[Rfam]
RNA sequence: AUCGCAACAGGGCAAGAGCAGGAGGCCAGUCAUGUUUUUCGACAAUGUGGUGAUCGCCGGAGUGCUGACUGUCGGCCUCAUGGUUCUGUUUUUCGCAGGGUUUGGAUUCUUUAUCUGGAAAGACGCGAAUAAGCGCAAGAAGCCUUAAGUCUUUCCAGGGCAACGAGCACGCAAGGCAUUUUGGGCAACUUCGGUUGCCCUUUUUUUUG
Number, nucleotide and partner (000 for none) at each position: 001a000002u098003c000004g096005c095006a000007a000008c000009a000010g000011g000012g000013c000014a000015a000016g000017a000018g000019c000020a000021g000022g000023a000024g000025g000026c000027c000028a000029g000030u000031c000032a000033u000034g000035u000036u000037u000038u000039u000040c000041g000042a000043c000044a000045a000046u000047g057048u056049g055050g000051u000052g000053a000054u000055c049056g048057c047058c000059g000060g000061a000062g000063u000064g000065c000066u000067g000068a000069c000070u000071g000072u000073c000074g085075g084076c083077c082078u000079c000080a000081u000082g077083g076084u075085u074086c000087u000088g000089u000090u000091u000092u000093u000094c000095g005096c004097a000098g002099g000100g000101u000102u000103u000104g000105g000106a000107u000108u000109c000110u000111u000112u000113a000114u000115c000116u000117g000118g000119a000120a000121a000122g000123a000124c000125g000126c000127g000128a000129a000130u000131a000132a000133g000134c000135g000136c000137a000138a000139g000140a000141a000142g000143c000144c000145u000146u000147a000148a000149g000150u000151c000152u000153u000154u000155c000156c000157a000158g000159g000160g000161c000162a000163a000164c000165g000166a000167g177168c176169a000170c175171g000172c000173a000174a000175g170176g168177c167178a000179u000180u000181u000182u000183g200184g199185g198186c197187a196188a195189c194190u000191u000192c000193g000194g189195u188196u187197g186198c185199c184200c183201u000202u000203u000204u000205u000206u000207u000208u000209g000

This 209-nucleotide sequence from Pseudomonas protegens belongs to the Rfam family "PhrS". Its family is annotated with quorum sensing in the Gene Ontology. The base pairs follow the family's consensus structure, which was predicted with CMfinder.